[Rfam]
RNA sequence: AUGACCCCCGGCGAAGGUCACGCAAUUUAGGUAAGGUCAUCGAUACCUUUACGUGUGGCUUUGCCGAUCUCAUGGGGUAC
Numbered sequence: 001a002u003g004a005c006c007c008c009c010g011g012c013g014a015a016g017g018u019c020a021c022g023c024a025a026u027u028u029a030g031g032u033a034a035g036g037u038c039a040u041c042g043a044u045a046c047c048u049u050u051a052c053g054u055g056u057g058g059c060u061u062u063g064c065c066g067a068u069c070u071c072a073u074g075g076g077g078u079a080c
Stems, first nucleotide, its partner, number of pairs: 003080001004078005009066005015061009029048005036041001
Shown here is an 80-nucleotide sequence, a member of the family "SL669 non-coding RNA".